[Rfam]
RNA sequence: UUAAGUUAAACACAUAAAAUAUGUCCCUCCUUUAAUUAUACGCAUUGCCUCAGUAAGUCCUAAAACCUCAAGCUUGUUUCAAUUGAGGCUGAUGUGUAUAAUUAAAGGAGAUGACAUAUUUUAUUUGGUUAACUUAAUU
Number, nucleotide and partner (000 for none) at each position: 001u137002u136003a135004a134005g133006u132007u131008a130009a129010a000011c127012a126013c000014a124015u123016a122017a121018a120019a119020u118021a117022u116023g115024u114025c113026c000027c110028u109029c108030c107031u106032u105033u104034a103035a102036u101037u100038a099039u098040a097041c096042g095043c094044a093045u092046u091047g089048c088049c087050u086051c085052a084053g000054u000055a000056a000057g000058u000059c000060c000061u000062a000063a000064a000065a000066c000067c000068u000069c000070a000071a000072g000073c000074u000075u000076g000077u000078u000079u000080c000081a000082a000083u000084u052085g051086a050087g049088g048089c047090u000091g046092a045093u044094g043095u042096g041097u040098a039099u038100a037101a036102u035103u034104a033105a032106a031107g030108g029109a028110g027111a000112u000113g025114a024115c023116a022117u021118a020119u019120u018121u017122u016123a015124u014125u000126u012127g011128g000129u009130u008131a007132a006133c005134u004135u003136a002137a001138u000139u000
Notes:
MIR7993 microRNA precursor family: a 139-nucleotide RNA from Anisodus acutangulus. Its family is annotated with miRNA-mediated post-transcriptional gene silencing and RISC complex in the Gene Ontology. NCBI's taxonomy places the organism under Eukaryota, Mesangiospermae, Solanales, Solanoideae, Anisodus.